[Rfam]
RNA sequence: CGAGCCGGCACCUCGUACGGGGUCCGUCCGCGCCGCUUCGUCGGCCGAGAUGCAAGGACCCGCGAUGACCCGACCGGGGAGAGGAGACUCGCAUG
Numbered sequence: 001c002g003a004g005c006c007g008g009c010a011c012c013u014c015g016u017a018c019g020g021g022g023u024c025c026g027u028c029c030g031c032g033c034c035g036c037u038u039c040g041u042c043g044g045c046c047g048a049g050a051u052g053c054a055a056g057g058a059c060c061c062g063c064g065a066u067g068a069c070c071c072g073a074c075c076g077g078g079g080a081g082a083g084g085a086g087a088c089u090c091g092c093a094u095g
Stems, first nucleotide, its partner, number of pairs: 014064003020061006026051003033044003